The record is an 88-nucleotide RNA sequence, which matches "GA-cis RNA" in Rfam. Rfam classes the family as a small RNA.
[Rfam]
RNA sequence: UGAGGGAGGAACCAUCAUGCGAAGCAUGAUUUUAAAUGGUUCCGACCGACUUGCCGCCGAAGCUUUAGCUGAGGGGGCGAUACAUAUU
Numbered sequence: 001u002g003a004g005g006g007a008g009g010a011a012c013c014a015u016c017a018u019g020c021g022a023a024g025c026a027u028g029a030u031u032u033u034a035a036a037u038g039g040u041u042c043c044g045a046c047c048g049a050c051u052u053g054c055c056g057c058c059g060a061a062g063c064u065u066u067a068g069c070u071g072a073g074g075g076g077g078c079g080a081u082a083c084a085u086a087u088u
Base pairs, nucleotide, nucleotide: 008043009042010041011040012039013038014030015029016028017027018026019025053078054077055076057074058073061070062069

The base pairs follow the family's consensus structure, which is taken from published work. The sequence is in the family's curated seed alignment.